The family of this 131-nucleotide RNA from Allobosea sp. OK403 is "TPP riboswitch aptamer (THI element)". The match comes from Rfam's covariance-model search (58 bits). Rfam describes the family as follows. Vitamin B(1) in its active form thiamin pyrophosphate (TPP) is an essential coenzyme that is synthesised by coupling of pyrimidine and thiazole moieties in bacteria.
RNA sequence: CGUCAUUCCAGGGAGAUCCCCGGCAAGGGGCUGAGACACCGCUGGCAGACCGGGAAACCCGGACAAGCGCGCGGAAAUCCUUCGAACCUGAUCCGGUUCAUACCGGCGGAGGGAUGGAUUUCCCGGCUUGA
Number, nucleotide and partner (000 for none) at each position: 001c000002g000003u000004c000005a000006u000007u118008c117009c116010a115011g081012g080013g079014a078015g000016a000017u000018c030019c029020c028021c027022g000023g000024c000025a000026a000027g021028g020029g019030g018031c000032u000033g000034a000035g000036a000037c000038a000039c074040c073041g072042c071043u000044g000045g000046c000047a000048g000049a000050c000051c000052g000053g000054g000055a000056a000057a000058c000059c000060c000061g000062g000063a000064c000065a000066a000067g000068c000069g000070c000071g042072c041073g040074g039075a000076a000077a000078u014079c013080c012081u011082u000083c000084g000085a000086a000087c112088c111089u110090g000091a000092u000093c106094c105095g104096g103097u000098u000099c000100a000101u000102a000103c096104c095105g094106g093107c000108g000109g000110a089111g088112g087113g000114a000115u010116g009117g008118a007119u000120u000121u000122c000123c000124c000125g000126g000127c000128u000129u000130g000131a000